A member of the RNA family "Nuclear RNase P" from Rhynochetos jubatus, 349 nucleotides long.
Its Rfam clan is "RNaseP clan".
It is annotated as a ribozyme.
[Rfam]
RNA sequence: UCCGGGGGAAGCUCACUGCCGAGGCCACGCACGGGGUGUCCGUCACCCAGGCCCCGCCUCGGGGAAGGUCUGAGAGAAGGGCCGCCCGCGGCUCCAGCAGAGCCCAGCCCGCCAGGGGCCGGUGAGCCACCAGCAAGGGGGGGCGCCGUGUUAUCGGGCUCGACCUGGGCAGGAGAAGCCGAGCUGGUUCCCGGGCGGGGGAAUAGAAUAAUCUCACCCGCGGUUAACCCCGGCGGAUGCUCGUGGGCCCCGCGGUGCUUUGAGACAGACUCACGGCCGGCGAUUGUUGAGUCCAAUGGGUGAGGUGGGGCACCGCCCUACAACCCAAUUCAGACUACUCUCCCCUGGA
Numbered sequence: 001u002c003c004g005g006g007g008g009a010a011g012c013u014c015a016c017u018g019c020c021g022a023g024g025c026c027a028c029g030c031a032c033g034g035g036g037u038g039u040c041c042g043u044c045a046c047c048c049a050g051g052c053c054c055c056g057c058c059u060c061g062g063g064g065a066a067g068g069u070c071u072g073a074g075a076g077a078a079g080g081g082c083c084g085c086c087c088g089c090g091g092c093u094c095c096a097g098c099a100g101a102g103c104c105c106a107g108c109c110c111g112c113c114a115g116g117g118g119c120c121g122g123u124g125a126g127c128c129a130c131c132a133g134c135a136a137g138g139g140g141g142g143g144c145g146c147c148g149u150g151u152u153a154u155c156g157g158g159c160u161c162g163a164c165c166u167g168g169g170c171a172g173g174a175g176a177a178g179c180c181g182a183g184c185u186g187g188u189u190c191c192c193g194g195g196c197g198g199g200g201g202a203a204u205a206g207a208a209u210a211a212u213c214u215c216a217c218c219c220g221c222g223g224u225u226a227a228c229c230c231c232g233g234c235g236g237a238u239g240c241u242c243g244u245g246g247g248c249c250c251c252g253c254g255g256u257g258c259u260u261u262g263a264g265a266c267a268g269a270c271u272c273a274c275g276g277c278c279g280g281c282g283a284u285u286g287u288u289g290a291g292u293c294c295a296a297u298g299g300g301u302g303a304g305g306u307g308g309g310g311c312a313c314c315g316c317c318c319u320a321c322a323a324c325c326c327a328a329u330u331c332a333g334a335c336u337a338c339u340c341u342c343c344c345c346u347g348g349a
Stems, first nucleotide, its partner, number of pairs: 001349004007343003012304006020061005034048005070333005080278004090104005105121001107119004122274005128268001142259009305321007
The organism belongs to Rhynochetos, within Eukaryota.